[Rfam]
RNA sequence: GGGCCUGGGCCUGGAGAGGCCUGGGGCAAAGGGCAGGCUCCCAAAGGGCAGACUCCUGAGGCCUGAGUCUCUCAGGAGUGGUCAGGCUUAGGGAC
Dot-bracket structure: .....((((((((......((((..........)))).(((.(..(((...(...........)....))))..))).....)))))))).....
Numbered sequence: 001g002g003g004c005c006u007g008g009g010c011c012u013g014g015a016g017a018g019g020c021c022u023g024g025g026g027c028a029a030a031g032g033g034c035a036g037g038c039u040c041c042c043a044a045a046g047g048g049c050a051g052a053c054u055c056c057u058g059a060g061g062c063c064u065g066a067g068u069c070u071c072u073c074a075g076g077a078g079u080g081g082u083c084a085g086g087c088u089u090a091g092g093g094a095c
Stems, first nucleotide, its partner, number of pairs: 006090008020037004039077003043072001046071003052064001

A member of the RNA family "Glycine riboswitch aptamer", 95 nucleotides long.
Rfam links the family to the GO term glycine biosynthetic process.
This family represents the bacterial glycine riboswitch. Glycine riboswitches usually consist of two metabolite-binding aptamers domains with similar structures in tandem.